[Rfam]
RNA sequence: GCCAUCAAGAGAAACGCCUAAAAAGGGGGCGUUAAGGUGGUGCUGGAUGUUUGGUGCGGACUCUGGACCUGGGCUCGUGUUGUAACAUGCUGGCCUGCCCGGUCCAAGUUGGUAGUGGGCUGGGGGGCUGUUGCGAAAGCUUCGGCCUCUCUGUCCCUGAAGUGACAGGCACCGCGUUAGGCUGGUUUCACAGAGCAGCGCUCACUGUCCGCUUCCAACGGUGGAAGGUUAACAGGCCGCUGCACCAUGGGCCCGUUCUGGUUCGGAGUCCUUCCAUAACAGACCACCAUCUUU
Dot-bracket structure: (((.....(........)(....)...)))...(((((((((..(..(((.(((.(.(.((((((((((.((((((((..((..(.....(((((((.((..((((.(((((.(((((((.(((((((((..((....))..))))))))).))))(....).(((((.....((((....(((......)))....))))...))))).))).)))))..)))).))....))))))).).))..)))))))).....))))))))))).).))).).))..)))))))))).
Rfam assigns this 294-nucleotide sequence from Triticum aestivum to the family "Plant signal recognition particle RNA". The base pairs follow the family's consensus structure, which is taken from published work. The literature on the family includes a 2002 paper in Curr Opin Struct Biol by Wild et al., "Towards the structure of the mammalian signal recognition particle". Taxonomically the source falls in Triticum (Eukaryota, Poales, Poaceae, Triticodae).